Overview
Shown here is a 56-nucleotide RNA, a member of the family "S4-Clostridia ribosomal protein leader".

[Rfam]
RNA sequence: GAAAGGCCGUCAAAUCGCCGGUGACGGCUGGGUGUGACCGAGACACCCCAGUUAGG
Dot-bracket structure: ....((((((((.........))))))))((((((.......))))))........
It is one of the family's seed sequences. Rfam classes the family as a cis-regulatory leader. The family is grouped with related families in Rfam's "Ribosomal Protein S4 Leader clan".